The record is a 181-nucleotide RNA from Arthrobacter subterraneus, which matches "c-di-AMP riboswitch aptamer (ydaO/yuaA leader)" in Rfam. From the family's description: This family represents a conserved RNA structure found upstream of the ydaO and yuaA genes in Bacillus subtilis and related genes in other bacteria. It scores 76 bits against the family's covariance model. Taxonomically the source falls in Arthrobacter (Bacteria, Bacillati, Actinomycetes, Micrococcales). Its family is annotated with cyclic-di-AMP binding and regulation of gene expression in the Gene Ontology.
RNA sequence: CCACACGGAUCGCCGAGCUCUGUCACCGUGGUGGGGUCGUCCGUUUUCCGCUGGCAGAGGCGGGGGAACCAUGUACGCGGGGCCAAUGCUUUGUGGGUCCUUGGGGUUAAGCCGUUUUCACGGCCGGGUGUCUCCCAUCCGAACCCGACAGCUAACCUCGUAGGCGUUGGGAGAAGGUACU
Numbered sequence: 001c002c003a004c005a006c007g008g009a010u011c012g013c014c015g016a017g018c019u020c021u022g023u024c025a026c027c028g029u030g031g032u033g034g035g036g037u038c039g040u041c042c043g044u045u046u047u048c049c050g051c052u053g054g055c056a057g058a059g060g061c062g063g064g065g066g067a068a069c070c071a072u073g074u075a076c077g078c079g080g081g082g083c084c085a086a087u088g089c090u091u092u093g094u095g096g097g098u099c100c101u102u103g104g105g106g107u108u109a110a111g112c113c114g115u116u117u118u119c120a121c122g123g124c125c126g127g128g129u130g131u132c133u134c135c136c137a138u139c140c141g142a143a144c145c146c147g148a149c150a151g152c153u154a155a156c157c158u159c160g161u162a163g164g165c166g167u168u169g170g171g172a173g174a175a176g177g178u179a180c181u
Stems, first nucleotide, its partner, number of pairs: 011166004018059008060161006070103002104146003112123004126140004